[Rfam]
RNA sequence: GGGUGCUUAAGACUUUCUGUCUUGAGCAUUGUUGAGGGACAGAAAGUGGAAAGCCCCGGGAAAUUUGCAUUUACCCGAGGCUACCCCUCAACCCCAACAAGUUGAGAGUAGCCUCUUAUUCUUUUUUUCACAAGGAGUAAAAGGCAUG
Dot-bracket structure: (((.((((...((((((((((((..(......)..))))))))))))...)))))))(((.(((....)))..)))(((((...(.((((((........)))))).)..)))))...((..((...........))..)).......
Numbered sequence: 001g002g003g004u005g006c007u008u009a010a011g012a013c014u015u016u017c018u019g020u021c022u023u024g025a026g027c028a029u030u031g032u033u034g035a036g037g038g039a040c041a042g043a044a045a046g047u048g049g050a051a052a053g054c055c056c057c058g059g060g061a062a063a064u065u066u067g068c069a070u071u072u073a074c075c076c077g078a079g080g081c082u083a084c085c086c087c088u089c090a091a092c093c094c095c096a097a098c099a100a101g102u103u104g105a106g107a108g109u110a111g112c113c114u115c116u117u118a119u120u121c122u123u124u125u126u127u128u129c130a131c132a133a134g135g136a137g138u139a140a141a142a143g144g145c146a147u148g
Stems, first nucleotide, its partner, number of pairs: 001057003005054004012047012026033001058076003062071003077115005085108001087106006119141002123137002
The record is a 148-nucleotide sequence, which matches "sok antitoxin (CssrC)" in Rfam. On this family, see Peng et al., PLoS One 2011: "An integrated approach for finding overlooked genes in Shigella". Rfam's curators write: Also identified in Shigella as CssrC.